RNA sequence: AGCUGUCGGGGUCGCGCCCGGCUGACCCAAGCGGGGGCUACUGUCAGGAUCCCAUGGGUCCGAGGCGUACUUGGCGACCGCAUGUCGAUGGCGUGUCCACUCUGAAUCGACGGACUCUCGAGAUGAUUUACCUGAAGGUUUAAAAUCUCUUGAGAUAAUGAGUUGGGCAUCCCCCAGGCUGGCAACAGAACAAGGGCAACCACCUCCGCCGAUAGUGGAUGGACUGCAUGCCUGAAUGUAAUGGAACCAAGUAUCUCGGAGUGCCUGUGGGGCAACCCUGGCUUU
Numbered sequence: 001a002g003c004u005g006u007c008g009g010g011g012u013c014g015c016g017c018c019c020g021g022c023u024g025a026c027c028c029a030a031g032c033g034g035g036g037g038c039u040a041c042u043g044u045c046a047g048g049a050u051c052c053c054a055u056g057g058g059u060c061c062g063a064g065g066c067g068u069a070c071u072u073g074g075c076g077a078c079c080g081c082a083u084g085u086c087g088a089u090g091g092c093g094u095g096u097c098c099a100c101u102c103u104g105a106a107u108c109g110a111c112g113g114a115c116u117c118u119c120g121a122g123a124u125g126a127u128u129u130a131c132c133u134g135a136a137g138g139u140u141u142a143a144a145a146u147c148u149c150u151u152g153a154g155a156u157a158a159u160g161a162g163u164u165g166g167g168c169a170u171c172c173c174c175c176a177g178g179c180u181g182g183c184a185a186c187a188g189a190a191c192a193a194g195g196g197c198a199a200c201c202a203c204c205u206c207c208g209c210c211g212a213u214a215g216u217g218g219a220u221g222g223a224c225u226g227c228a229u230g231c232c233u234g235a236a237u238g239u240a241a242u243g244g245a246a247c248c249a250a251g252u253a254u255c256u257c258g259g260a261g262u263g264c265c266u267g268u269g270g271g272g273c274a275a276c277c278c279u280g281g282c283u284u285u
Base pairs, nucleotide, nucleotide: 001039002038003037005022006021007020008019009018010017026036027035028034043282044281045280046279047278048277050272051271052270053269054268055267056264058262059260060259061258062257063256064255067254068253069252070251071250072249073248074247075244077242080239081238082237083236085234090232091231092230093229094228095227096226097222098221101219102218103217104216106213107212108211109210111208112207113206114205115154116153117152120149121148122147123146124145127142130139131138132137155159162203164202165201166200171196172195173194179188180187181186
Dot-bracket structure: (((.((((((......))))))...(((.....))))))...((((((.(((((((.(((((((..(((((((((.(..((((.(....(((((((((..((((.((((.(((((((..(((((..(..(((....)))..)..)))))..)))(...)..(.(((....(((.....(((....))).....)))...)))).)))).))))..)))).))...))))))).).))))..).)..)))))))))))))).).)..))))))....))))))...